[Rfam]
RNA sequence: CAGCAUGUUAUCCGAGGGCCACGGCUGCUCCCAUAGCUGCGGCAGCUCCAACAACAUGCAAGAAAAACUGAGAGGCUUUGUCAGCUUGUGUCUCCUUGUCCCACCAGCUGUCACUCUACUCUCAUACACAA
Numbered sequence: 001c002a003g004c005a006u007g008u009u010a011u012c013c014g015a016g017g018g019c020c021a022c023g024g025c026u027g028c029u030c031c032c033a034u035a036g037c038u039g040c041g042g043c044a045g046c047u048c049c050a051a052c053a054a055c056a057u058g059c060a061a062g063a064a065a066a067a068c069u070g071a072g073a074g075g076c077u078u079u080g081u082c083a084g085c086u087u088g089u090g091u092c093u094c095c096u097u098g099u100c101c102c103a104c105c106a107g108c109u110g111u112c113a114c115u116c117u118a119c120u121c122u123c124a125u126a127c128a129c130a131a
Stems, first nucleotide, its partner, number of pairs: 012042002017038003021034001023032001069124006084111002088104003